[Rfam]
RNA sequence: UAUUGGCUUAGUUAGGAGGCAAAGAUUAAUGGAUCUUUUACUGGUCUUCUAGGGCCUUUUGAGGGGACUCUUGCUUCUUUGGAUCGAUUGUCCUCCAAGCAGCCUUAAGACAUAA
Numbered sequence: 001u002a003u004u005g006g007c008u009u010a011g012u013u014a015g016g017a018g019g020c021a022a023a024g025a026u027u028a029a030u031g032g033a034u035c036u037u038u039u040a041c042u043g044g045u046c047u048u049c050u051a052g053g054g055c056c057u058u059u060u061g062a063g064g065g066g067a068c069u070c071u072u073g074c075u076u077c078u079u080u081g082g083a084u085c086g087a088u089u090g091u092c093c094u095c096c097a098a099g100c101a102g103c104c105u106u107a108a109g110a111c112a113u114a115a
Base pairs, nucleotide, nucleotide: 004021005020007018008017009016032046033045034044035043049109050108051106052105053104054103055102058099059098060097061096063095064094065093066092067091068090071087
RNA: Small nucleolar RNA U19